small nucleolar RNA snoR126: an 88-nucleotide RNA from Tripterygium wilfordii. The literature on the family includes a 2009 paper in Nucleic Acids Res by Chen and Wu, "Mining small RNA sequencing data: a new approach to identify small nucleolar RNAs in Arabidopsis". Pairs were carried over by alignment from the consensus structure, which was predicted with RNAalifold. The match comes from Rfam's covariance-model search (59 bits). The source organism's lineage runs through Eukaryota, Spermatophyta, fabids, Celastraceae and Tripterygium.

RNA sequence: AGGCGAUGAUGAAUUGUUUCAUUUCUCGAUACUGAAAUGAUGGGCUUUAUAUUUAUUUGAUGACUGCAUUUGUGCGUGUCUGAGCCUC
Numbered sequence: 001a002g003g004c005g006a007u008g009a010u011g012a013a014u015u016g017u018u019u020c021a022u023u024u025c026u027c028g029a030u031a032c033u034g035a036a037a038u039g040a041u042g043g044g045c046u047u048u049a050u051a052u053u054u055a056u057u058u059g060a061u062g063a064c065u066g067c068a069u070u071u072g073u074g075c076g077u078g079u080c081u082g083a084g085c086c087u088c
Stems, first nucleotide, its partner, number of pairs: 001087004